Shown here is a 45-nucleotide RNA sequence from Microcaecilia unicolor, a member of the family "Histone 3' UTR stem-loop". Lineage of the source: Eukaryota > Eumetazoa > Vertebrata > Euteleostomi > Microcaecilia. By type it is a cis-regulatory element.
RNA sequence: CCAAAGGCUCUUUUAAGAGCCACCCACACUUUCAGUAACAGAGCU
Numbered sequence: 001c002c003a004a005a006g007g008c009u010c011u012u013u014u015a016a017g018a019g020c021c022a023c024c025c026a027c028a029c030u031u032u033c034a035g036u037a038a039c040a041g042a043g044c045u
Stems, first nucleotide, its partner, number of pairs: 006021006